[Rfam]
RNA sequence: AAACGGACUAGGUCGGGCGGUUAGGCCCCGCUCACAACCCGCGCUAUGGUCUUUAGCGGGGACCGAAGCCGGGGUACGUCCGGACCAAUCGGUGCGGGCCCCGCAAGCUAACGUCGAAGCCUCGUCCUACGAGGGCAGCGGUCCGUGUGCCAGCGUCUGCAGGGACGUUCGGGCGCGGUUAACCGCGGGUAAUCCGUCAGGCACGGAAGUGAGCAGCGGGCCCGCGAACAGCUGUCGCCCGUAGGGUCGCGGGGUGGAGGAGGCACGCGGGACUCCCCGUAUCGAGCGGGCCGGGCACCCCCCGGGUCCACCA
Numbered sequence: 001a002a003a004c005g006g007a008c009u010a011g012g013u014c015g016g017g018c019g020g021u022u023a024g025g026c027c028c029c030g031c032u033c034a035c036a037a038c039c040c041g042c043g044c045u046a047u048g049g050u051c052u053u054u055a056g057c058g059g060g061g062a063c064c065g066a067a068g069c070c071g072g073g074g075u076a077c078g079u080c081c082g083g084a085c086c087a088a089u090c091g092g093u094g095c096g097g098g099c100c101c102c103g104c105a106a107g108c109u110a111a112c113g114u115c116g117a118a119g120c121c122u123c124g125u126c127c128u129a130c131g132a133g134g135g136c137a138g139c140g141g142u143c144c145g146u147g148u149g150c151c152a153g154c155g156u157c158u159g160c161a162g163g164g165a166c167g168u169u170c171g172g173g174c175g176c177g178g179u180u181a182a183c184c185g186c187g188g189g190u191a192a193u194c195c196g197u198c199a200g201g202c203a204c205g206g207a208a209g210u211g212a213g214c215a216g217c218g219g220g221c222c223c224g225c226g227a228a229c230a231g232c233u234g235u236c237g238c239c240c241g242u243a244g245g246g247u248c249g250c251g252g253g254g255u256g257g258a259g260g261a262g263g264c265a266c267g268c269g270g271g272a273c274u275c276c277c278c279g280u281a282u283c284g285a286g287c288g289g290g291c292c293g294g295g296c297a298c299c300c301c302c303c304g305g306g307u308c309c310a311c312c313a
Stems, first nucleotide, its partner, number of pairs: 005309005011064004015033006038060005070304005078296005085288001089285010100271005107264003112259001114257001119255007126245006133238001134236005140229001141180001143178006150171001152169007184226006193220005202211003
Description:
This 313-nucleotide sequence from Natronomonas salsuginis belongs to the Rfam family "Archaeal signal recognition particle RNA". It is annotated as a non-coding RNA gene. A search with the family's covariance model found it, with a score of 178 bits. The literature on the family includes a 2011 paper in Nat Struct Mol Biol by Hainzl et al., "Structural basis of signal-sequence recognition by the signal recognition particle". The family is grouped with related families in Rfam's "SRP clan".